[Rfam]
RNA sequence: CUCUUCGAAAUAUAUUUAGGUAUAGCCUCAUGCGCUGACAAUCGGGGGUAGAGCACUGAAAAGGCUAGGGCCCAUACCAGGGUACCAAACCUUAUCAAACUCCGAAUACCGAUUGGUGAAGCAUGGGAGUCAGUCUUGGGGGGAUAAGCUCCUAGGACGAGAGGGAAAGAGCCCAGACCACCACUUAAGGCCCCUAAAUUACUGCUCAGUGGAUUGAAGGAAGUGGAUCUACAUAAACAAUAGGGAUGUUGGCUUAGAAGCAGCCACCAUUUAAACAGUGCGUAAUAGCUGACCUAUCGAGUGGAUUUGCGCCGAAAAUGAUCGGGACUUAAGCAGUAUGCCGAAAGUGUGGACCCUACUUAAGUAGGGUGGUAGAAGAGCGUUCCAAUUGGGCUGAAGCCGGAAAGGUGAUUGACGGUGGACUGGUUGGAAGUGAGGAU
Numbered sequence: 001c002u003c004u005u006c007g008a009a010a011u012a013u014a015u016u017u018a019g020g021u022a023u024a025g026c027c028u029c030a031u032g033c034g035c036u037g038a039c040a041a042u043c044g045g046g047g048g049u050a051g052a053g054c055a056c057u058g059a060a061a062a063g064g065c066u067a068g069g070g071c072c073c074a075u076a077c078c079a080g081g082g083u084a085c086c087a088a089a090c091c092u093u094a095u096c097a098a099a100c101u102c103c104g105a106a107u108a109c110c111g112a113u114u115g116g117u118g119a120a121g122c123a124u125g126g127g128a129g130u131c132a133g134u135c136u137u138g139g140g141g142g143g144a145u146a147a148g149c150u151c152c153u154a155g156g157a158c159g160a161g162a163g164g165g166a167a168a169g170a171g172c173c174c175a176g177a178c179c180a181c182c183a184c185u186u187a188a189g190g191c192c193c194c195u196a197a198a199u200u201a202c203u204g205c206u207c208a209g210u211g212g213a214u215u216g217a218a219g220g221a222a223g224u225g226g227a228u229c230u231a232c233a234u235a236a237a238c239a240a241u242a243g244g245g246a247u248g249u250u251g252g253c254u255u256a257g258a259a260g261c262a263g264c265c266a267c268c269a270u271u272u273a274a275a276c277a278g279u280g281c282g283u284a285a286u287a288g289c290u291g292a293c294c295u296a297u298c299g300a301g302u303g304g305a306u307u308u309g310c311g312c313c314g315a316a317a318a319u320g321a322u323c324g325g326g327a328c329u330u331a332a333g334c335a336g337u338a339u340g341c342c343g344a345a346a347g348u349g350u351g352g353a354c355c356c357u358a359c360u361u362a363a364g365u366a367g368g369g370u371g372g373u374a375g376a377a378g379a380g381c382g383u384u385c386c387a388a389u390u391g392g393g394c395u396g397a398a399g400c401c402g403g404a405a406a407g408g409u410g411a412u413u414g415a416c417g418g419u420g421g422a423c424u425g426g427u428u429g430g431a432a433g434u435g436a437g438g439a440u
Base pairs, nucleotide, nucleotide: 001380002379003378004377005376006375011024012023013022014021015020026129027127028126029125030124031123032122033121036120037117039115040114041113042112043111044110045109051103052101053100057097058096059095061093062092063091064090068086069085070083071082072081073080133158134157135156136155137154138153139152140151141150142149163174164173165172178352179351180350181349183348184347185346189342190341191340198339200338201337202336203335204334205333219313220312223310224309225308226307227306228305229304230303231302232301240297241296242295243294244293246270247269248268251265252264253263271275276291280289281288353370354369355368356367357366358365359364381435383432384431385430386429387428388427389426390425391424392423399419400418401417402416405413406412
This 440-nucleotide part of an RNA from Opitutia bacterium SCGC AG-212-L18 belongs to the Rfam family "Bacterial large subunit ribosomal RNA". Taxonomically the source falls in Opitutia (Bacteria, Pseudomonadati, Verrucomicrobiota). Its family is annotated with structural constituent of ribosome and ribosome in the Gene Ontology. The base pairs follow the family's consensus structure, which is taken from published work.